[Rfam]
RNA sequence: UAAAUCGGAAUAGCGCCAGGACCAUUUUGAUUGGUUGACGAGGAUAGAGUUUAUCGAUUGUCGGCGGGUGACUCUAGGGUCUGCACUCUACAGAUCUCAUGUUAAAAACAAGUGUAAGCUUGCAACAAAGCAGGGAUCAAGCAGUGGA
Numbered sequence: 001u002a003a004a005u006c007g008g009a010a011u012a013g014c015g016c017c018a019g020g021a022c023c024a025u026u027u028u029g030a031u032u033g034g035u036u037g038a039c040g041a042g043g044a045u046a047g048a049g050u051u052u053a054u055c056g057a058u059u060g061u062c063g064g065c066g067g068g069u070g071a072c073u074c075u076a077g078g079g080u081c082u083g084c085a086c087u088c089u090a091c092a093g094a095u096c097u098c099a100u101g102u103u104a105a106a107a108a109c110a111a112g113u114g115u116a117a118g119c120u121u122g123c124a125a126c127a128a129a130g131c132a133g134g135g136a137u138c139a140a141g142c143a144g145u146g147g148a
Base pairs, nucleotide, nucleotide: 020036021035022034023033024032026030046075047074048073049072050071054064055063056062057061076089077088078087079086080085093138094137095136096135097134098133109122110121111120112119113118
The record is a 148-nucleotide sequence from Loigolactobacillus rennini, which matches "glmS glucosamine-6-phosphate activated ribozyme aptamer" in Rfam.
It scores 85 bits against the family's covariance model.
The family's RNA type in Rfam is riboswitch.
Gene Ontology terms of the family: catalytic activity and regulation of gene expression.
Rfam describes the family as follows. This entry contains a glucosamine-6-phosphate activated ribozyme that is found in the mRNA for GlmS. GlmS is an enzyme that uses fructose-6-phosphate and glutamine to generate glucosamine-6-phosphate.
Pairs were carried over by alignment from the consensus structure, which is taken from published work.